[Rfam]
Nucleotides: 074
Stems, first nucleotide, its partner, number of pairs: 004071001006069001008067004013062006022054010
Number, partner (000 for none) and nucleotide at each position: 001000g002000a003000g004071g005000g006069u007000g008067a009066u010065g011064u012000a013062a014061a015060c016059a017058u018057c019000u020000c021000a022054a023053c024052u025051g026050g027049a028048a029047g030046c031045u032000g033000u034000g035000a036000c037000g038000u039000c040000a041000g042000u043000a044000a045031g046030g047029c048028u049027u050026u051025c052024a053023g054022u055000u056000a057018g058017g059016u060015g061014u062013u063000c064011a065010c066009g067008u068000c069006a070000g071004c072000a073000c074000g